[Rfam]
RNA sequence: GGGUGACUGCGGGCCCCUCUGACGGUAAGCGAUUACCGCCAUGUCGGAGUCACAUG
Numbered sequence: 001g002g003g004u005g006a007c008u009g010c011g012g013g014c015c016c017c018u019c020u021g022a023c024g025g026u027a028a029g030c031g032a033u034u035a036c037c038g039c040c041a042u043g044u045c046g047g048a049g050u051c052a053c054a055u056g
Stems, first nucleotide, its partner, number of pairs: 006050003010046003023038005

This 56-nucleotide sequence from Pseudomonas paraeruginosa belongs to the Rfam family "terC RNA".
The base pairs follow the family's consensus structure, which is taken from published work.
It is one of the family's seed sequences.
It is annotated as a cis-regulatory element.